Record summary:
This 125-nucleotide sequence from Dickeya dadantii belongs to the Rfam family "RtT RNA". The literature on the family includes a 1991 paper in Nucleic Acids Res by Bosl and Kersten, "A novel RNA product of the tyrT operon of Escherichia coli". The base pairs follow the family's consensus structure, which is taken from published work. About the family: This family represents a bacterial cis-regulatory element known as RtT RNA. The exact function of RtT is unknown although it is thought that it may be involved in changing the cellular response in relation to amino acid starvation. Lineage of the source: Bacteria > Gammaproteobacteria > Enterobacterales > Dickeya > Dickeya dadantii.
RNA sequence: CAGGCGUCAUGUUGGGGAAGGUGAGAACCUUCUACGAAGUUCGAGUCGAGCAGCGCUAGAAAACUCGCGUAGCACGGCCCGAAAGGUGAGGAGCUGAGCGACGAAUAAUCCUUCUCCCACUAUCA
Number, nucleotide and partner (000 for none) at each position: 001c000002a000003g000004g000005c000006g000007u000008c000009a000010u000011g000012u000013u000014g000015g116016g115017g114018a113019a112020g111021g110022u108023g000024a000025g000026a000027a000028c000029c000030u000031u000032c088033u000034a000035c085036g000037a000038a000039g000040u083041u082042c081043g080044a000045g000046u000047c000048g056049a000050g000051c000052a000053g000054c000055g000056c048057u000058a000059g000060a000061a000062a000063a000064c076065u000066c000067g073068c072069g000070u000071a000072g068073c067074a000075c000076g064077g000078c000079c000080c043081g042082a041083a040084a000085g035086g000087u000088g032089a000090g000091g000092a000093g000094c000095u000096g000097a000098g000099c000100g000101a000102c000103g000104a000105a000106u000107a000108a022109u000110c021111c020112u019113u018114c017115u016116c015117c000118c000119a000120c000121u000122a000123u000124c000125a000